[Rfam]
RNA sequence: CACUAUGAAGCUAAGAGCGUUAACCUUUUAAGUUAAAGUUAGAGACCUUAAAAUCUCCAUAGUGA
Number, nucleotide and partner (000 for none) at each position: 001c064002a063003c062004u061005a060006u059007g058008a000009a000010g018011c017012u016013a000014a000015g000016a012017g011018c010019g000020u036021u035022a034023a033024c032025c000026u000027u000028u000029u000030a000031a000032g024033u023034u022035a021036a020037a000038g000039u000040u000041a000042g057043a056044g055045a054046c000047c000048u000049u000050a000051a000052a000053a000054u045055c044056u043057c042058c007059a006060u005061a004062g003063u002064g001065a000

The record is a 65-nucleotide RNA, which matches "tRNA" in Rfam. The family's consensus secondary structure is taken from published work.